[Rfam]
RNA: ssNA-helicase RNA
RNA sequence: UUCCAUAAAGGAUAGUAUUACCUUUAUGGAAGCAAUGUAGCAGUAGCA
Numbered sequence: 001u002u003c004c005a006u007a008a009a010g011g012a013u014a015g016u017a018u019u020a021c022c023u024u025u026a027u028g029g030a031a032g033c034a035a036u037g038u039a040g041c042a043g044u045a046g047c048a
Stems, first nucleotide, its partner, number of pairs: 001031011